[Rfam]
RNA sequence: GACUAAGCGCAUACGGUGGAUGCCUAGGCGGUAGGAGGCGAUGAAGGACGUAGUAGCCUGCGAUAAGCUUCGGGGAGCCGGCAAACAGGCUUUGAUCCGGAGAUUUCCGAAUGGGGAAACCCGGCCACUUCAGGUGGUCAUCGUACACUGAAUACAUAGGUGUACGAGGCGAACCCGGGGAACUGAAACAUCUAAGUACCCGGAGGAAAAGAAAUCAACCGAGAUUCCCUUAGUAGCGGCGAGCGAACGGGGACUAGCCCUAAAGUGCCUAUAGUUCUAGCGGAACAGUCUGGAAAGUCUGGCCAUAGACGGUGAUAGCCCCGUACGCGAAAGGGCUAUAGGUAUGAAACGAGUAGGACGGGACACGUGUUAUCUUGUCUGAAUAUGGGGGGCCCACCCUCCAAGGCUAAAUACUCCCUACCGACCGAUAGUGAACUAGUACCGUGAGGGAAAGGUUAAAAGAACCCCAGUGAGGGGAGUGAAAUAGAACCUGAAACCGUAUGCGUACAAG
Numbered sequence: 001g002a003c004u005a006a007g008c009g010c011a012u013a014c015g016g017u018g019g020a021u022g023c024c025u026a027g028g029c030g031g032u033a034g035g036a037g038g039c040g041a042u043g044a045a046g047g048a049c050g051u052a053g054u055a056g057c058c059u060g061c062g063a064u065a066a067g068c069u070u071c072g073g074g075g076a077g078c079c080g081g082c083a084a085a086c087a088g089g090c091u092u093u094g095a096u097c098c099g100g101a102g103a104u105u106u107c108c109g110a111a112u113g114g115g116g117a118a119a120c121c122c123g124g125c126c127a128c129u130u131c132a133g134g135u136g137g138u139c140a141u142c143g144u145a146c147a148c149u150g151a152a153u154a155c156a157u158a159g160g161u162g163u164a165c166g167a168g169g170c171g172a173a174c175c176c177g178g179g180g181a182a183c184u185g186a187a188a189c190a191u192c193u194a195a196g197u198a199c200c201c202g203g204a205g206g207a208a209a210a211g212a213a214a215u216c217a218a219c220c221g222a223g224a225u226u227c228c229c230u231u232a233g234u235a236g237c238g239g240c241g242a243g244c245g246a247a248c249g250g251g252g253a254c255u256a257g258c259c260c261u262a263a264a265g266u267g268c269c270u271a272u273a274g275u276u277c278u279a280g281c282g283g284a285a286c287a288g289u290c291u292g293g294a295a296a297g298u299c300u301g302g303c304c305a306u307a308g309a310c311g312g313u314g315a316u317a318g319c320c321c322c323g324u325a326c327g328c329g330a331a332a333g334g335g336c337u338a339u340a341g342g343u344a345u346g347a348a349a350c351g352a353g354u355a356g357g358a359c360g361g362g363a364c365a366c367g368u369g370u371u372a373u374c375u376u377g378u379c380u381g382a383a384u385a386u387g388g389g390g391g392g393c394c395c396a397c398c399c400u401c402c403a404a405g406g407c408u409a410a411a412u413a414c415u416c417c418c419u420a421c422c423g424a425c426c427g428a429u430a431g432u433g434a435a436c437u438a439g440u441a442c443c444g445u446g447a448g449g450g451a452a453a454g455g456u457u458a459a460a461a462g463a464a465c466c467c468c469a470g471u472g473a474g475g476g477g478a479g480u481g482a483a484a485u486a487g488a489a490c491c492u493g494a495a496a497c498c499g500u501a502u503g504c505g506u507a508c509a510a511g
Base pairs, nucleotide, nucleotide: 007506008505009504010503011502012501013500014499015498016497022491023455024454027426028425029423030422031421032420033419034418035417036415037414038170039169046108047107048106049062050061051060068102069101070100071099072098073097074096077090078089079088113122114121115120123139124138125137126136127135128134129133141167142166143165144164145163146162147161148160149159174205175203176202177201178200179199185192186191215222216221225411226253227252228251229250230249236244237243256408257407258406259405266344267343268342269341270340271339272338273337274336275335276334277333278332280328281327282326286301287300288299290297304308311321312320356380357379358378359377360376361375362374363373387402388401389400390399391398442449443448465477466476467475468474

This 511-nucleotide part of an RNA from Thiohalophilus thiocyanatoxydans belongs to the Rfam family "Bacterial large subunit ribosomal RNA".
Taxonomically the source falls in Thiohalophilus (Bacteria, Pseudomonadati, Pseudomonadota, Thiohalomonadales).